[Rfam]
RNA: transfer-messenger RNA
RNA sequence: GGGGGUGUAAUGGUUUCGACAUGCAUAAACUAUUAGUUAUUGCAGUAGUUUGGCAGACUAUAAUGCUUCUAGGUAUUUCUUAAACGGAAAUAAAGAAGAAAAAGCUGAAUACUCAGCAUGAAAUCCAGCUUUUGCUGGAAACACAAGUCUAGCAUUUGCAUAAUUAAGCAAUUCUAGCUGCACUCAAUUUUUCCUGUGAAUUGAUGUGUAGGUCUUACAGGAUAGUUUAAGUUGAUUCUAAUAGACUUAAAUGAAAUUUAUUAGGAAUUAUAUUAAUAUGUUUGAUUAUUUAAGAUUAAUAUAAUUUAUUAAAAAAUAAUAUAAACUGUAGACAUAGCUAAAAAAUUUAUGUGUGGACCCGGGUUCGACUCCCGGCAUCUCCACCA
Dot-bracket structure: (((((((............((((((((((.(.((((((((..((((..[((((.].............))))...............................................................................(.(.((((........)))).).)..((((((.(((((..[[[[...)))))..)))))).......]]]]..(((((((((..[[[[.[..))))))))).........].]]]](((((((((..(.(...[[[.[[[).).))))))))).........]]].]]]....)))).....)))))))).)..))))))))))...(((((.......))))))))))))....
Numbered sequence: 001g002g003g004g005g006u007g008u009a010a011u012g013g014u015u016u017c018g019a020c021a022u023g024c025a026u027a028a029a030c031u032a033u034u035a036g037u038u039a040u041u042g043c044a045g046u047a048g049u050u051u052g053g054c055a056g057a058c059u060a061u062a063a064u065g066c067u068u069c070u071a072g073g074u075a076u077u078u079c080u081u082a083a084a085c086g087g088a089a090a091u092a093a094a095g096a097a098g099a100a101a102a103a104g105c106u107g108a109a110u111a112c113u114c115a116g117c118a119u120g121a122a123a124u125c126c127a128g129c130u131u132u133u134g135c136u137g138g139a140a141a142c143a144c145a146a147g148u149c150u151a152g153c154a155u156u157u158g159c160a161u162a163a164u165u166a167a168g169c170a171a172u173u174c175u176a177g178c179u180g181c182a183c184u185c186a187a188u189u190u191u192u193c194c195u196g197u198g199a200a201u202u203g204a205u206g207u208g209u210a211g212g213u214c215u216u217a218c219a220g221g222a223u224a225g226u227u228u229a230a231g232u233u234g235a236u237u238c239u240a241a242u243a244g245a246c247u248u249a250a251a252u253g254a255a256a257u258u259u260a261u262u263a264g265g266a267a268u269u270a271u272a273u274u275a276a277u278a279u280g281u282u283u284g285a286u287u288a289u290u291u292a293a294g295a296u297u298a299a300u301a302u303a304a305u306u307u308a309u310u311a312a313a314a315a316a317u318a319a320u321a322u323a324a325a326c327u328g329u330a331g332a333c334a335u336a337g338c339u340a341a342a343a344a345a346u347u348u349a350u351g352u353g354u355g356g357a358c359c360c361g362g363g364u365u366c367g368a369c370u371c372c373c374g375g376c377a378u379c380u381c382c383a384c385c386a
Stems, first nucleotide, its partner, number of pairs: 001382007020355010031343001033341008043328004049055001050072004152175001154173001156171004178211006185203005192222004225252009236267004241262001268304009279294001281292001285320003289316003359375005